[Rfam]
RNA sequence: GUUAAACGCCGAGUUUGCGCAAAGCGCAAACAUCGCUUAUUAACGUAUGCGCUAUCGCGCAUGAAUUCGUCCGCCUCCAAAAUUGAUAUUUUGUUCGGCUAUCGAAUUUUAAG
Numbered sequence: 001g002u003u004a005a006a007c008g009c010c011g012a013g014u015u016u017g018c019g020c021a022a023a024g025c026g027c028a029a030a031c032a033u034c035g036c037u038u039a040u041u042a043a044c045g046u047a048u049g050c051g052c053u054a055u056c057g058c059g060c061a062u063g064a065a066u067u068c069g070u071c072c073g074c075c076u077c078c079a080a081a082a083u084u085g086a087u088a089u090u091u092u093g094u095u096c097g098g099c100u101a102u103c104g105a106a107u108u109u110u111a112a113g
Stems, first nucleotide, its partner, number of pairs: 011034002013031008049060004065107005073099003078093006
Shown here is a 113-nucleotide RNA from Treponema sp. Marseille-Q3903, a member of the family "TD-1 RNA". The family is grouped with related families in Rfam's "TD (Treponema denticola) motifs".